Shown here is a 187-nucleotide RNA, a member of the family "T-box leader".
Rfam 15.1 lists 19,395 matches to the family in 1,923 species.
Uncharged tRNA acts as the effector for transcription antitermination of genes in the T-box leader family.
A search with the family's covariance model found it, with a score of 94 bits.
The base pairs follow the family's consensus structure, which is taken from published work.
[Rfam]
RNA sequence: GUAAACACAAGGAUUGAGAUAGUAUUUUUGCUUUGCUUUACAGAGAAAAGGUGGUUGGUGCAAACCUAAGCAAAUAAAAAUAUGUCCCCUCAGGAGUGGUCGGUGAUGAAUCGGACGGCAAGUAACCGUUAUUACAUUGAGUUGGCUUAUGCAAUUUGGGUGGCACCGCGAUGACUUCGUCCCAUGA
Numbered sequence: 001g002u003a004a005a006c007a008c009a010a011g012g013a014u015u016g017a018g019a020u021a022g023u024a025u026u027u028u029u030g031c032u033u034u035g036c037u038u039u040a041c042a043g044a045g046a047a048a049a050g051g052u053g054g055u056u057g058g059u060g061c062a063a064a065c066c067u068a069a070g071c072a073a074a075u076a077a078a079a080a081u082a083u084g085u086c087c088c089c090u091c092a093g094g095a096g097u098g099g100u101c102g103g104u105g106a107u108g109a110a111u112c113g114g115a116c117g118g119c120a121a122g123u124a125a126c127c128g129u130u131a132u133u134a135c136a137u138u139g140a141g142u143u144g145g146c147u148u149a150u151g152c153a154a155u156u157u158g159g160g161u162g163g164c165a166c167c168g169c170g171a172u173g174a175c176u177u178c179g180u181c182c183c184a185u186g187a
Stems, first nucleotide, its partner, number of pairs: 007097002015092004025080006036070003049067004100114005116128003145152002157184004168180004